A member of the RNA family "Streptomyces-metH RNA" from Streptomyces populi, 120 nucleotides long.
It scores 103 bits against the family's covariance model.
Rfam classes the family as a small RNA.
The source organism's lineage runs through Bacteria, Bacillati, Kitasatosporales, Streptomycetaceae and Streptomyces.
RNA sequence: CCCGUCCGCCUCGUGGACGCCCAUGCCCCAUCUCCGGUGCUCCGGGCUACCCUGACGGCGUGCGCCUUCCAUGGGAAGCGCAAAGCCGACAGCCGUCGCACUCCAGGGAGCACCUUCAUG
Numbered sequence: 001c002c003c004g005u006c007c008g009c010c011u012c013g014u015g016g017a018c019g020c021c022c023a024u025g026c027c028c029c030a031u032c033u034c035c036g037g038u039g040c041u042c043c044g045g046g047c048u049a050c051c052c053u054g055a056c057g058g059c060g061u062g063c064g065c066c067u068u069c070c071a072u073g074g075g076a077a078g079c080g081c082a083a084a085g086c087c088g089a090c091a092g093c094c095g096u097c098g099c100a101c102u103c104c105a106g107g108g109a110g111c112a113c114c115u116u117c118a119u120g
Base pairs, nucleotide, nucleotide: 061082062081063080064079066078067077068076069075085099086098088097089096090095